[Rfam]
This 273-nucleotide RNA from Nannospalax galili belongs to the Rfam family "Mason-Pfizer monkey virus packaging signal".
Rfam classes the family as a cis-regulatory element.
Its family is annotated with viral genome packaging in the Gene Ontology.
This family represents a group of sequences that are related to the Mason-Pfizer monkey virus (MPMV) packaging signal. The packaging signal is located in the 5' UTR and is required for specific RNA encapsidation.
Pairs were carried over by alignment from the consensus structure, which was predicted with PFOLD.
RNA sequence: UGGCACCAAAAGUGGGGCCUGGAUACUGGGGACAGCAUGAAGGACAUGAAGGAGGAAAAAAGGGGUACGCACCCGUUCAAAUAAUUCAGAGAUGCCGCGGGAGCCUGCCGCGACCGAGCCAAAGGUAAGUUGGUCAUUCAAUCAUGGGGCAAGAAUUAAGCCAGCAUCAGAUUUAUGUGAUACAGUUAAGAGAAGCUCUGCAGGCAAGAGGAGUAAAGGUUAAAACUGAGGAAUUAUUUCAUUUCUUUGAUUUUGUAAAGGACAUUUGUCCCU
Numbered sequence: 001u002g003g004c005a006c007c008a009a010a011a012g013u014g015g016g017g018c019c020u021g022g023a024u025a026c027u028g029g030g031g032a033c034a035g036c037a038u039g040a041a042g043g044a045c046a047u048g049a050a051g052g053a054g055g056a057a058a059a060a061a062g063g064g065g066u067a068c069g070c071a072c073c074c075g076u077u078c079a080a081a082u083a084a085u086u087c088a089g090a091g092a093u094g095c096c097g098c099g100g101g102a103g104c105c106u107g108c109c110g111c112g113a114c115c116g117a118g119c120c121a122a123a124g125g126u127a128a129g130u131u132g133g134u135c136a137u138u139c140a141a142u143c144a145u146g147g148g149g150c151a152a153g154a155a156u157u158a159a160g161c162c163a164g165c166a167u168c169a170g171a172u173u174u175a176u177g178u179g180a181u182a183c184a185g186u187u188a189a190g191a192g193a194a195g196c197u198c199u200g201c202a203g204g205c206a207a208g209a210g211g212a213g214u215a216a217a218g219g220u221u222a223a224a225a226c227u228g229a230g231g232a233a234u235u236a237u238u239u240c241a242u243u244u245c246u247u248u249g250a251u252u253u254u255g256u257a258a259a260g261g262a263c264a265u266u267u268g269u270c271c272c273u
Stems, first nucleotide, its partner, number of pairs: 006031002012026003036048003085123002096112005130152003135149001137148004157200002160196002208248006217235002220232002258273001260271004